The record is a 92-nucleotide RNA sequence from Vanilla planifolia, which matches "Small nucleolar RNA Z43" in Rfam.
[Rfam]
RNA sequence: GGGCGAUGAUGAUUUUUAAAGGUCUCGUUCGUCGUAAUGGCCAAUUCGCCUUGACGACCAUCCUGUUAUAUCACCACCCAUAUUCUGAGCCG
Numbered sequence: 001g002g003g004c005g006a007u008g009a010u011g012a013u014u015u016u017u018a019a020a021g022g023u024c025u026c027g028u029u030c031g032u033c034g035u036a037a038u039g040g041c042c043a044a045u046u047c048g049c050c051u052u053g054a055c056g057a058c059c060a061u062c063c064u065g066u067u068a069u070a071u072c073a074c075c076a077c078c079c080a081u082a083u084u085c086u087g088a089g090c091c092g
Base pairs, nucleotide, nucleotide: 002091003090004089043052044051

Gene Ontology terms of the family: RNA processing and nucleolus. A reference for the family is Chen et al. (2003), "The high diversity of snoRNAs in plants: identification and comparative study of 120 snoRNA genes from Oryza sativa", Nucleic Acids Res. It scores 88 bits against the family's covariance model.